Background
A member of the RNA family "t44 RNA" from Endozoicomonas sp. G2_1, 104 nucleotides long. Lineage of the source: Bacteria > Pseudomonadati > Gammaproteobacteria > Endozoicomonadaceae > Endozoicomonas. The base pairs follow the family's consensus structure, which was predicted with LocARNA. From the family's description: This family consists of a number of bacterial RNA genes of between 135 and 170 bases in length.
[Rfam]
RNA sequence: ACAGCAUAAUUUUACAAACUCACAUACAUCUAGCAAAGGUAUACCGGGGUGCUCAAAGCUUAGGCUGAUAUGAGUCGUGUAUAUUGGGUGUAUGGACGCUUAAC
Numbered sequence: 001a002c003a004g005c006a007u008a009a010u011u012u013u014a015c016a017a018a019c020u021c022a023c024a025u026a027c028a029u030c031u032a033g034c035a036a037a038g039g040u041a042u043a044c045c046g047g048g049g050u051g052c053u054c055a056a057a058g059c060u061u062a063g064g065c066u067g068a069u070a071u072g073a074g075u076c077g078u079g080u081a082u083a084u085u086g087g088g089u090g091u092a093u094g095g096a097c098g099c100u101u102a103a104c
Stems, first nucleotide, its partner, number of pairs: 023094008038085007045077002051075005